[Rfam]
The record is an 88-nucleotide RNA sequence from Morella rubra, which matches "Small nucleolar RNA SNORD24" in Rfam. NCBI's taxonomy places the organism under Eukaryota, Embryophyta, Magnoliopsida, Gunneridae, Morella. A reference for the family is Qu et al. (1995), "U24, a novel intron-encoded small nucleolar RNA with two 12 nt long, phylogenetically conserved complementarities to 28S rRNA", Nucleic Acids Res. Rfam 15.1 lists 2,843 matches to the family in 1,188 species.

RNA sequence: GGCUGGUGAUGUGAGAAGCAGUAUUUGCUACUCUUGAUGGGUAGUAAUCCCCAUUUGAUGAUUUCUGUCCACCAAGAUCUCUGAGGCC
Numbered sequence: 001g002g003c004u005g006g007u008g009a010u011g012u013g014a015g016a017a018g019c020a021g022u023a024u025u026u027g028c029u030a031c032u033c034u035u036g037a038u039g040g041g042u043a044g045u046a047a048u049c050c051c052c053a054u055u056u057g058a059u060g061a062u063u064u065c066u067g068u069c070c071a072c073c074a075a076g077a078u079c080u081c082u083g084a085g086g087c088c
Stems, first nucleotide, its partner, number of pairs: 001088004